A member of the RNA family "Selenocysteine transfer RNA" from Portunus trituberculatus, 78 nucleotides long.
On this family, see Lowe and Eddy, Nucleic Acids Res 1997: "tRNAscan-SE: a program for improved detection of transfer RNA genes in genomic sequence".
[Rfam]
RNA sequence: GAUCCUCGGCGGUCCGGGGUGCAGGCUUCAAACCUGUAGCUGAUUAGCGUCAGAGUGGUUCAACUCCACCUGCUGGGC
Numbered sequence: 001g002a003u004c005c006u007c008g009g010c011g012g013u014c015c016g017g018g019g020u021g022c023a024g025g026c027u028u029c030a031a032a033c034c035u036g037u038a039g040c041u042g043a044u045u046a047g048c049g050u051c052a053g054a055g056u057g058g059u060u061c062a063a064c065u066c067c068a069c070c071u072g073c074u075g076g077g078c
Stems, first nucleotide, its partner, number of pairs: 001070001004019006020038006040053005055069004